[Rfam]
The record is a 48-nucleotide RNA sequence from Drosera rotundifolia, which matches "Plastid-psbl-rps4 3UTR RNA" in Rfam. Plastid psbl-rps4-psbC is a non-coding RNA (ncRNA) present in plastids. It is compose of two short stem-loops in tandem in the terminal 3 prime untranslate region (3UTR) mostly in psbl and rps4 seed plants genes. For this family Rfam cites "Protein-mediated protection as the predominant mechanism for defining processed mRNA termini in land plant chloroplasts" (Zhelyazkova et al., Nucleic Acids Res, 2012). The family's RNA type in Rfam is cis-regulatory element.
RNA sequence: CGGAAAGAGAGGGAUUCGAACCCUCGGUACAAAUGUACAACGAAUUAG
Numbered sequence: 001c002g003g004a005a006a007g008a009g010a011g012g013g014a015u016u017c018g019a020a021c022c023c024u025c026g027g028u029a030c031a032a033a034u035g036u037a038c039a040a041c042g043a044a045u046u047a048g
Stems, first nucleotide, its partner, number of pairs: 009025005027038004